[Rfam]
RNA: mir-71 microRNA precursor family
RNA sequence: UCUGCAAGAAAGACAUGGGUAGUGAGAUAGUGGCGCCCCGACGACUUUCCUGCUGUGGCGCCAGUUUUGUACUGGUAGAUCUCACUACCUUGUCUUUCAUGUUGAU
Numbered sequence: 001u002c003u004g005c006a007a008g009a010a011a012g013a014c015a016u017g018g019g020u021a022g023u024g025a026g027a028u029a030g031u032g033g034c035g036c037c038c039c040g041a042c043g044a045c046u047u048u049c050c051u052g053c054u055g056u057g058g059c060g061c062c063a064g065u066u067u068u069g070u071a072c073u074g075g076u077a078g079a080u081c082u083c084a085c086u087a088c089c090u091u092g093u094c095u096u097u098c099a100u101g102u103u104g105a106u
Stems, first nucleotide, its partner, number of pairs: 008098008017090003021086008